[Rfam]
Nucleotides: 085
Stems, first nucleotide, its partner, number of pairs: 007029002010027007068081002071078001
Number, partner (000 for none) and nucleotide at each position: 001000a002000c003000a004000g005000a006000a007029u008028u009000c010027c011026c012025c013024g014023g015022a016021g017000a018000g019000g020000a021016c022015u023014c024013c025012g026011g027010g028008a029007a030000a031000a032000u033000a034000g035000a036000a037000u038000a039000c040000a041000a042000a043000a044000u045000a046000a047000a048000u049000u050000a051000a052000g053000a054000u055000a056000g057000u058000a059000a060000u061000u062000a063000g064000g065000a066000a067000u068081g069080a070000c071078c072000g073000a074000a075000u076000a077000u078071g079000u080069u081068u082000c083000a084000u085000a